Rfam assigns this 82-nucleotide RNA sequence from Streptomyces sp. ISL-1 to the family "nrdJ RNA". The source organism's lineage runs through Bacteria, Bacillati, Actinomycetota, Kitasatosporales and Streptomyces.
RNA sequence: ACCUGCUACGGACGCCGCGCGCGGCGACCGCGGCAUCAGACACAGACUGUGCCCCGGGAAGAACUGGGCACUUCAGGGCGUU
Numbered sequence: 001a002c003c004u005g006c007u008a009c010g011g012a013c014g015c016c017g018c019g020c021g022c023g024g025c026g027a028c029c030g031c032g033g034c035a036u037c038a039g040a041c042a043c044a045g046a047c048u049g050u051g052c053c054c055c056g057g058g059a060a061g062a063a064c065u066g067g068g069c070a071c072u073u074c075a076g077g078g079c080g081u082u
Base pairs, nucleotide, nucleotide: 004035005034006033007032009030010029011028013026014025015024016023049071050070051069052068053067054066056064
The match comes from Rfam's covariance-model search (80 bits). The family's RNA type in Rfam is small RNA.